Rfam assigns this 182-nucleotide sequence from Oceaniovalibus guishaninsula to the family "Ruegeria cis52 sRNA".
Lineage of the source: Bacteria > Alphaproteobacteria > Roseobacteraceae > Oceaniovalibus > Oceaniovalibus guishaninsula.
RNA sequence: UGCGCAGCGCGUGUUUCAGCACGACGUUGCGGAAGCUGACGCCCUUGAGCCGGGCGGUGCGGAUAUAUUGCGCGGUCAUCACCUCGGCCAUGCUGGCACGGGUCAUGCGGGCGAUAUAGCCCAUGCCGUAAAGCGCGAUGGUGAGGACGGGCAGGAAGAAAUUCUCGAACGUCGCAUGGUCC
Dot-bracket structure: ....((.(((((.(((..(((......((.(........(.(...(((.(((.((.((((((.....)))))).)......((...........))).))).)))...).)........).))))).).)).))))).))....((((((((.((((....)))).....)))...)).)))